RNA: Iron response element I
RNA sequence: CGGUUUCCGGCUUCAACAGUGCUUGGACGAAACCCG
Numbered sequence: 001c002g003g004u005u006u007c008c009g010g011c012u013u014c015a016a017c018a019g020u021g022c023u024u025g026g027a028c029g030a031a032a033c034c035c036g
Base pairs, nucleotide, nucleotide: 001036002035003034005032006031008029010028012027013026014025015024016023017021